[Rfam]
RNA sequence: CUCUGAUGCUAGGAAAGUUUCAGGGCGGGAGGAG
Number, nucleotide and partner (000 for none) at each position: 001c025002u024003c023004u022005g021006a000007u000008g018009c017010u016011a000012g000013g000014a000015a000016a010017g009018u008019u000020u000021c005022a004023g003024g002025g001026c000027g000028g000029g000030a000031g000032g000033a000034g000

This 34-nucleotide RNA sequence from Moschus moschiferus belongs to the Rfam family "L31-Firmicutes ribosomal protein leader". The match comes from Rfam's covariance-model search (34 bits). It is annotated as a cis-regulatory leader. A reference for the family is Eckert and Weinberg (2020), "Discovery of 20 novel ribosomal leader candidates in bacteria and archaea", BMC Microbiol.